[Rfam]
RNA sequence: CCCACUUGCUUCAUCCAACGGACCGUCGGGCACGUACCUGCCCGGAGAAGGAAGAGGAA
Numbered sequence: 001c002c003c004a005c006u007u008g009c010u011u012c013a014u015c016c017a018a019c020g021g022a023c024c025g026u027c028g029g030g031c032a033c034g035u036a037c038c039u040g041c042c043c044g045g046a047g048a049a050g051g052a053a054g055a056g057g058a059a
Stems, first nucleotide, its partner, number of pairs: 009051003014046002027044006
RNA: msiK RNA